[Rfam]
RNA sequence: GGCGUAAAGAGCGCGUAGGCGGCUGGAUAAGUCGGCUGUGAAAGACGUGGGCUCAACUCACGGAUUGCGGUUGAUACUGUCUGGCUAGAGUGCGGGAGAGGGAAGUGGAAUUCCCGGUGUAGCGGUGAAAUGCGUAGAUAUCGGGAGGAACACCAGUGGCGAAGGCGGCUUCCUGGACCGCUACUGACGCUCAAGCGCGAAAGCUGGGGGAGCGAACGGGAUUAGAUACCCCGGUAGUCCCAGCUGUAAACGAUGGAUGCUAGGUGUGGGGGUCGUAUGGCCUCCGUGCCGGAGUUAACGCGAUAAGCAUCCCGCCUGGGGAGUACGGCCGCAAGGCUGAAACUCAAAGGAAU
Dot-bracket structure: (((.....(.((((...(((.(((((((.(((((((((((.....((((((.....))))))...)))))))))..)))))))))...(((((((....((((((((...((((((((...(((......)))......))))))))...).......((....)).)))))))...)))).)))...)))...))))....((((((...((...((((.........))))...))))))))..........((((((..((((((((((((....))))))))))))...((....)).....)))))))))).(((......((((....))))....)))........